[Rfam]
RNA: Nitrogen stress-induced RNA 1
Organism: Coleofasciculus chthonoplastes
RNA sequence: CGGUAGAUGCACCCUGGUUAUAGACUUCAGCCUCACGGCUGAGGUUUUUUUUC
Numbered sequence: 001c002g003g004u005a006g007a008u009g010c011a012c013c014c015u016g017g018u019u020a021u022a023g024a025c026u027u028c029a030g031c032c033u034c035a036c037g038g039c040u041g042a043g044g045u046u047u048u049u050u051u052u053c
Stems, first nucleotide, its partner, number of pairs: 002013003024045009